[Rfam]
RNA sequence: ACUGCGUCGAGAUUUGGUAACUCUACCACCGUUGGCGAAAUGUGACAGUCAAUGGGGUAAGAGUUUCCGUCCCUCGGCGCGAA
Number, nucleotide and partner (000 for none) at each position: 001a000002c000003u081004g080005c079006g078007u077008c076009g075010a074011g073012a000013u000014u000015u000016g068017g067018u000019a065020a064021c063022u062023c061024u000025a000026c000027c057028a000029c055030c054031g053032u052033u051034g050035g049036c048037g000038a000039a000040a000041u000042g000043u000044g000045a000046c000047a000048g036049u035050c034051a033052a032053u031054g030055g029056g000057g027058u000059a000060a000061g023062a022063g021064u020065u019066u000067c017068c016069g000070u000071c000072c000073c011074u010075c009076g008077g007078c006079g005080c004081g003082a000083a000
The record is an 83-nucleotide sequence from Vespula pensylvanica, which matches "mir-2765 microRNA precursor family" in Rfam. Gene Ontology terms of the family: miRNA-mediated post-transcriptional gene silencing and RISC complex. The source organism's lineage runs through Eukaryota, Protostomia, Panarthropoda, Vespoidea and Vespula. The base pairs follow the family's consensus structure, which was predicted with RNAalifold.